[Rfam]
RNA sequence: UUAAAUAUUUAGCAAAACAACCGAAAGGUUGCGACGCAAAGCUAUAGGGCCUGUAAAAUGGUAGCCAGUUGCGACU
Numbered sequence: 001u002u003a004a005a006u007a008u009u010u011a012g013c014a015a016a017a018c019a020a021c022c023g024a025a026a027g028g029u030u031g032c033g034a035c036g037c038a039a040a041g042c043u044a045u046a047g048g049g050c051c052u053g054u055a056a057a058a059u060g061g062u063a064g065c066c067a068g069u070u071g072c073g074a075c076u
Stems, first nucleotide, its partner, number of pairs: 012037002018031005040070004047066002049062003